[Rfam]
RNA sequence: UGGAUAUGAUAAUUGAUUAUCUGAGAAAUAAUUGAUAAAAUCCCAAGGAAAAAAAUAUAAAAUAAUUCUUGCCUGUAGAUAGGCAGAUUUUGUCUUGUCCAC
Numbered sequence: 001u002g003g004a005u006a007u008g009a010u011a012a013u014u015g016a017u018u019a020u021c022u023g024a025g026a027a028a029u030a031a032u033u034g035a036u037a038a039a040a041u042c043c044c045a046a047g048g049a050a051a052a053a054a055a056u057a058u059a060a061a062a063u064a065a066u067u068c069u070u071g072c073c074u075g076u077a078g079a080u081a082g083g084c085a086g087a088u089u090u091u092g093u094c095u096u097g098u099c100c101a102c
Base pairs, nucleotide, nucleotide: 001101002100003099004098005097006096

The record is a 102-nucleotide RNA from Pteropus alecto, which matches "Small nucleolar RNA SNORD20" in Rfam. The literature on the family includes a 1994 paper in Mol Cell Biol by Nicoloso et al., "U20, a novel small nucleolar RNA, is encoded in an intron of the nucleolin gene in mammals". U20 is a C/D box small nucleolar RNA that is encoded in intron 11 of the nucleolin gene in human, mouse and rat. The family's RNA type in Rfam is C/D-box small nucleolar RNA. The family has 13 seed sequences and 573 matches in Rfam 15.1. A search with the family's covariance model found it, with a score of 49 bits.